Rfam assigns this 71-nucleotide RNA from Thermobifida fusca to the family "Actino-pnp RNA". Lineage of the source: Bacteria > Bacillati > Actinomycetota > Streptosporangiales > Thermobifida fusca. It is annotated as a cis-regulatory element. The sequence is in the family's curated seed alignment.
[Rfam]
RNA sequence: GCCGGUCUUCGGUAGUGGUUCUCCGACACGCCCGCACCAGGGGUCUCGGGGAACUUCGAUCGAUGGCCGGC
Numbered sequence: 001g002c003c004g005g006u007c008u009u010c011g012g013u014a015g016u017g018g019u020u021c022u023c024c025g026a027c028a029c030g031c032c033c034g035c036a037c038c039a040g041g042g043g044u045c046u047c048g049g050g051g052a053a054c055u056u057c058g059a060u061c062g063a064u065g066g067c068c069g070g071c
Base pairs, nucleotide, nucleotide: 001071002070003069004068005067006066007065009063010062011061012060013059017055018054019053020052021051022050023049024048025047026046028044029043031042032041033040